The family of this 104-nucleotide sequence from Bacillus sp. FJAT-27916 is "Manganese Mn2+ riboswitch aptamer (yybP-ykoY)". It scores 53 bits against the family's covariance model. Gene Ontology term of the family: manganese ion binding. The organism belongs to Bacillus, within Bacteria.
[Rfam]
RNA sequence: ACCCAAUUCAAAGGGGAGUAGCGUUAGGGAAACCUAAAACAAAGUCGUCAUUACAUGGAUCGUAUCCAUCGGCUUUGUUGGCAUUUAUUGAUUUAAAAAUGCUU
Numbered sequence: 001a002c003c004c005a006a007u008u009c010a011a012a013g014g015g016g017a018g019u020a021g022c023g024u025u026a027g028g029g030a031a032a033c034c035u036a037a038a039a040c041a042a043a044g045u046c047g048u049c050a051u052u053a054c055a056u057g058g059a060u061c062g063u064a065u066c067c068a069u070c071g072g073c074u075u076u077g078u079u080g081g082c083a084u085u086u087a088u089u090g091a092u093u094u095a096a097a098a099a100u101g102c103u104u
Base pairs, nucleotide, nucleotide: 025036026035027034038079039078040077041076042075043074044073045072046071047070055069056068057067058066059065